The family of this 102-nucleotide RNA sequence from Flavilitoribacter nigricans is "Bacteroidales small SRP". Taxonomically the source falls in Flavilitoribacter nigricans (Bacteria, Pseudomonadati, Saprospiria, Flavilitoribacter). Rfam links the family to the GO terms SRP-dependent cotranslational protein targeting to membrane, signal sequence recognition and signal recognition particle, plasma membrane targeting. The family's RNA type in Rfam is non-coding RNA gene. The match comes from Rfam's covariance-model search (63 bits). For this family Rfam cites "A high-resolution transcriptome map identifies small RNA regulation of metabolism in the gut microbe Bacteroides thetaiotaomicron" (Ryan et al., Nat Commun, 2020).
[Rfam]
RNA sequence: UGCCCCCGGUGGACGGCAUACAGCCAGCUCCCUGUGAACUCCCCCAGGGCGGAAACGCAGCAAGGGUAGCGGGUUGUAGCGGUUGGUGUGCUUGUUCACCUU
Numbered sequence: 001u002g003c004c005c006c007c008g009g010u011g012g013a014c015g016g017c018a019u020a021c022a023g024c025c026a027g028c029u030c031c032c033u034g035u036g037a038a039c040u041c042c043c044c045c046a047g048g049g050c051g052g053a054a055a056c057g058c059a060g061c062a063a064g065g066g067u068a069g070c071g072g073g074u075u076g077u078a079g080c081g082g083u084u085g086g087u088g089u090g091c092u093u094g095u096u097c098a099c100c101u102u
Stems, first nucleotide, its partner, number of pairs: 008100007016091005021085004